[Rfam]
RNA sequence: CCCAGAGGUAUUGAUAGGUGAAGUCGACCCUAAAGGUUGAUCACUUGAUUACACCAACCUGCGCCAGAUGCGCAGGUUUUUUUU
Numbered sequence: 001c002c003c004a005g006a007g008g009u010a011u012u013g014a015u016a017g018g019u020g021a022a023g024u025c026g027a028c029c030c031u032a033a034a035g036g037u038u039g040a041u042c043a044c045u046u047g048a049u050u051a052c053a054c055c056a057a058c059c060u061g062c063g064c065c066a067g068a069u070g071c072g073c074a075g076g077u078u079u080u081u082u083u084u
Stems, first nucleotide, its partner, number of pairs: 017055004021045001024040006057077008